[Rfam]
RNA sequence: UGGCUUGUGAUGAUAAUUUUCUUAUCUUAGCGGAUUUCAGUGAGAUUGGAAAUUAUAUCUUUCUAUCAAUGAUCUGAUUGUUACACACACUGAAGCCU
Numbered sequence: 001u002g003g004c005u006u007g008u009g010a011u012g013a014u015a016a017u018u019u020u021c022u023u024a025u026c027u028u029a030g031c032g033g034a035u036u037u038c039a040g041u042g043a044g045a046u047u048g049g050a051a052a053u054u055a056u057a058u059c060u061u062u063c064u065a066u067c068a069a070u071g072a073u074c075u076g077a078u079u080g081u082u083a084c085a086c087a088c089a090c091u092g093a094a095g096c097c098u
Stems, first nucleotide, its partner, number of pairs: 002097004
RNA: Small nucleolar RNA R11/Z151